[Rfam]
Shown here is a 121-nucleotide RNA, a member of the family "Betaproteobacteria-1 RNA". Rfam classes the family as a small RNA. Pairs were carried over by alignment from the consensus structure, which is taken from published work.
RNA sequence: CACCGCGCUGGGGGACAUGGUUUAACCACGGCGGCGCGGGAAGACCCCUACCGUGGGAAAGACAAGGAAGCAGGGGUAAGGGUGGCGAAGCUAGCGCCCGAUUGUCGAACGGCUGGCGGGU
Numbered sequence: 001c002a003c004c005g006c007g008c009u010g011g012g013g014g015a016c017a018u019g020g021u022u023u024a025a026c027c028a029c030g031g032c033g034g035c036g037c038g039g040g041a042a043g044a045c046c047c048c049u050a051c052c053g054u055g056g057g058a059a060a061g062a063c064a065a066g067g068a069a070g071c072a073g074g075g076g077u078a079a080g081g082g083u084g085g086c087g088a089a090g091c092u093a094g095c096g097c098c099c100g101a102u103u104g105u106c107g108a109a110c111g112g113c114u115g116g117c118g119g120g121u
Stems, first nucleotide, its partner, number of pairs: 003039008028054004045076005062105004080099004090117006